[Rfam]
RNA sequence: AAAAAAUGGAGACCAGUAACCAUUUGAAAAACGGGGCGUAAUCUGAAAAGCCAAAUGAGUAGGAAAUUU
Numbered sequence: 001a002a003a004a005a006a007u008g009g010a011g012a013c014c015a016g017u018a019a020c021c022a023u024u025u026g027a028a029a030a031a032c033g034g035g036g037c038g039u040a041a042u043c044u045g046a047a048a049a050g051c052c053a054a055a056u057g058a059g060u061a062g063g064a065a066a067u068u069u
Stems, first nucleotide, its partner, number of pairs: 006023004035052003042063002

Rfam assigns this 69-nucleotide RNA sequence from Williamwhitmania taraxaci to the family "DUF805 RNA". Pairs were carried over by alignment from the consensus structure, which is taken from published work. It scores 85 bits against the family's covariance model.